Source information: This 100-nucleotide RNA belongs to the Rfam family "L4-Archaeoglobi ribosomal protein leades". For this family Rfam cites "Discovery of 20 novel ribosomal leader candidates in bacteria and archaea" (Eckert and Weinberg, BMC Microbiol, 2020).
[Rfam]
RNA sequence: CUGACGGGCGCGUUCGGGUCAAUUGCGGAAUGCAACACCCGAUCUCCCUCCACACGCCACCCGACGUGGCCGUGUCGGAGGGGGAGCGCGUGACCAUCAG
Number, nucleotide and partner (000 for none) at each position: 001c100002u099003g098004a097005c000006g000007g000008g091009c090010g089011c088012g087013u086014u000015c041016g040017g039018g038019u000020c000021a000022a000023u035024u034025g033026c032027g031028g000029a000030a000031u027032g026033c025034a024035a023036c000037a000038c018039c017040c016041g015042a000043u085044c084045u083046c082047c081048c080049u079050c078051c077052a075053c074054a073055c072056g071057c000058c000059a000060c000061c000062c000063g000064a000065c000066g000067u000068g000069g000070c000071c056072g055073u054074g053075u052076c000077g051078g050079a049080g048081g047082g046083g045084g044085a043086g013087c012088g011089c010090g009091u008092g000093a000094c000095c000096a000097u004098c003099a002100g001